[Rfam]
Notes: A member of the RNA family "Actino-pnp RNA" from Leifsonia sp. Root227, 67 nucleotides long. The family's RNA type in Rfam is cis-regulatory element.

RNA sequence: GCUGGUCCUCGGUGGUGGUAUCCGGAUGCGCGCAUCGCGCAACCGUGUAUUUCUACUGAUGGCCAGA
Numbered sequence: 001g002c003u004g005g006u007c008c009u010c011g012g013u014g015g016u017g018g019u020a021u022c023c024g025g026a027u028g029c030g031c032g033c034a035u036c037g038c039g040c041a042a043c044c045g046u047g048u049a050u051u052u053c054u055a056c057u058g059a060u061g062g063c064c065a066g067a
Stems, first nucleotide, its partner, number of pairs: 002066006009059005017051005023045003027041006

Lineage of the source: Bacteria > Bacillati > Micrococcales > Microbacteriaceae > Leifsonia.